[Rfam]
RNA sequence: CAUUGAAGUGAUGAAAUUUGUAUCGGAAUAUAAUUAUGUCGACUAAAACUACAGACUACAAUUAUCUGAUUCAAUG
Number, nucleotide and partner (000 for none) at each position: 001c076002a075003u074004u073005g072006a071007a000008g000009u000010g000011a000012u000013g000014a000015a000016a000017u000018u000019u000020g000021u000022a000023u000024c000025g000026g000027a000028a000029u000030a000031u000032a000033a000034u000035u000036a000037u000038g000039u000040c000041g000042a000043c000044u000045a000046a000047a000048a000049c000050u000051a000052c000053a000054g000055a000056c000057u000058a000059c000060a000061a000062u000063u000064a000065u000066c000067u000068g000069a000070u000071u006072c005073a004074a003075u002076g001